RNA sequence: CCUGGAGCACUAAAGACCCUGAGUCUGGUGAGUGAGACUCGGGUGACAGUGACCUCCUGACAGCAAAGGGAUGGAGAGAGCAGCUCUGCUCCCAGCCAAGCCCAGGGCUCACUGUGCCAUCUCACACUC
Numbered sequence: 001c002c003u004g005g006a007g008c009a010c011u012a013a014a015g016a017c018c019c020u021g022a023g024u025c026u027g028g029u030g031a032g033u034g035a036g037a038c039u040c041g042g043g044u045g046a047c048a049g050u051g052a053c054c055u056c057c058u059g060a061c062a063g064c065a066a067a068g069g070g071a072u073g074g075a076g077a078g079a080g081c082a083g084c085u086c087u088g089c090u091c092c093c094a095g096c097c098a099a100g101c102c103c104a105g106g107g108c109u110c111a112c113u114g115u116g117c118c119a120u121c122u123c124a125c126a127c128u129c
Stems, first nucleotide, its partner, number of pairs: 003060001004057004018043002021040006068122003079113002082109006093100001
RNA: Small Cajal body specific RNA 4
Organism: Pachyramphus minor